[Rfam]
RNA sequence: AUCGAUAUAUCGCAAAAUCCACAUUUCCGCCGCAGAGAGGCCCAGCGGCGGCCCAACUGCCCGGCGAUAACGUCAUUGUUGCCUCGGUGGCUCGGUAUCACUCGAUGCCGGAAUACGUCAGCCCCCCAGCCCCCCGGUGUCAGGGGGAUGCCGGGCCACUUGGCAACGCGUAACGAGUACCUGACUUCAAAAAGGCCGGCGUUCAGCGCCGGCCUUUUC
Numbered sequence: 001a002u003c004g005a006u007a008u009a010u011c012g013c014a015a016a017a018u019c020c021a022c023a024u025u026u027c028c029g030c031c032g033c034a035g036a037g038a039g040g041c042c043c044a045g046c047g048g049c050g051g052c053c054c055a056a057c058u059g060c061c062c063g064g065c066g067a068u069a070a071c072g073u074c075a076u077u078g079u080u081g082c083c084u085c086g087g088u089g090g091c092u093c094g095g096u097a098u099c100a101c102u103c104g105a106u107g108c109c110g111g112a113a114u115a116c117g118u119c120a121g122c123c124c125c126c127c128a129g130c131c132c133c134c135c136g137g138u139g140u141c142a143g144g145g146g147g148a149u150g151c152c153g154g155g156c157c158a159c160u161u162g163g164c165a166a167c168g169c170g171u172a173a174c175g176a177g178u179a180c181c182u183g184a185c186u187u188c189a190a191a192a193a194g195g196c197c198g199g200c201g202u203u204c205a206g207c208g209c210c211g212g213c214c215u216u217u218u219c
Stems, first nucleotide, its partner, number of pairs: 032174001037046001078167006089157011104141008121130002193215010
A member of the RNA family "Bradyrhizobiaceae sRNA BjrC174" from Chelatococcus asaccharovorans, 219 nucleotides long. The family's RNA type in Rfam is small RNA. Taxonomically the source falls in Chelatococcus (Bacteria, Pseudomonadota, Alphaproteobacteria, Chelatococcaceae).